[Rfam]
RNA sequence: AUUACAUCAUAGAAAUUGACUUGUAUAAGUUCAUGAUAGGAUGAGCGUGUCUACCAACUGCCGUAACAGUUGACUACAAGUUUUUGGGAAACCAAA
Numbered sequence: 001a002u003u004a005c006a007u008c009a010u011a012g013a014a015a016u017u018g019a020c021u022u023g024u025a026u027a028a029g030u031u032c033a034u035g036a037u038a039g040g041a042u043g044a045g046c047g048u049g050u051c052u053a054c055c056a057a058c059u060g061c062c063g064u065a066a067c068a069g070u071u072g073a074c075u076a077c078a079a080g081u082u083u084u085u086g087g088g089a090a091a092c093c094a095a096a
Stems, first nucleotide, its partner, number of pairs: 018082008029046006055072006
The family of this 96-nucleotide RNA sequence from Mediterraneibacter torques is "Purine riboswitch aptamer". Pairs were carried over by alignment from the consensus structure, which is taken from published work. A reference for the family is Mandal et al. (2003), "Riboswitches Control Fundamental Biochemical Pathways in Bacillus subtilis and Other Bacteria", Cell. Its family is annotated with purine nucleobase biosynthetic process in the Gene Ontology.